[Rfam]
RNA sequence: CCGGCCAUAGCUCAGCGGUUACUUCUGUUGAUGAAAGGCUUCUUUCGAUUAAAUCUCUUCGGAGGUUCGAACCCCGCGGACGCUUUCCAG
Numbered sequence: 001c002c003g004g005c006c007a008u009a010g011c012u013c014a015g016c017g018g019u020u021a022c023u024u025c026u027g028u029u030g031a032u033g034a035a036a037g038g039c040u041u042c043u044u045u046c047g048a049u050u051a052a053a054u055c056u057c058u059u060c061g062g063a064g065g066u067u068c069g070a071a072c073c074c075c076g077c078g079g080a081c082g083c084u085u086u087c088c089a090g
Base pairs, nucleotide, nucleotide: 001090003088004087010081012079013078015077016076017075018074023071024070025069027067

Rfam assigns this 90-nucleotide RNA from Ornithorhynchus anatinus to the family "Vault RNA".
The organism belongs to Ornithorhynchus, within Eukaryota.
Rfam classes the family as a non-coding RNA gene.
Rfam's curators write: This family of RNAs are found as part of the enigmatic vault ribonucleoprotein complex. The complex consists of a major vault protein (MVP), two minor vault proteins (VPARP and TEP1), and several small untranslated RNA molecules. It has been suggested that the vault complex is involved in drug resistance.
A search with the family's covariance model found it, with a score of 44 bits.